[Rfam]
RNA sequence: UAAAUUCCAUUUUUGGUGUCUUAUGAUGAAGCUGCAUAGGGCAGAUUCUGAGUUGAGAAAUAACAUUUCUCUCCACUGAUCUCUAUAUGCCAUCUGAAGACACUAUAUAUUGC
Numbered sequence: 001u002a003a004a005u006u007c008c009a010u011u012u013u014u015g016g017u018g019u020c021u022u023a024u025g026a027u028g029a030a031g032c033u034g035c036a037u038a039g040g041g042c043a044g045a046u047u048c049u050g051a052g053u054u055g056a057g058a059a060a061u062a063a064c065a066u067u068u069c070u071c072u073c074c075a076c077u078g079a080u081c082u083c084u085a086u087a088u089g090c091c092a093u094c095u096g097a098a099g100a101c102a103c104u105a106u107a108u109a110u111u112g113c
Stems, first nucleotide, its partner, number of pairs: 014105008031093001034090005040084002044080001047079002050076001052074001055071006
Background:
This 113-nucleotide RNA from Neodrepanis coruscans belongs to the Rfam family "Small nucleolar RNA SNORD90". Gene Ontology terms of the family: nucleolus and RNA processing. For this family Rfam cites "RNomics: an experimental approach that identifies 201 candidates for novel, small, non-messenger RNAs in mouse" (Huttenhofer et al., EMBO J, 2001). About the family: snoRNA HBII-295 belongs to the family of C/D snoRNAs. It is the human orthologue of the mouse MBII-295 and has no identified RNA target. The family's RNA type in Rfam is C/D-box small nucleolar RNA.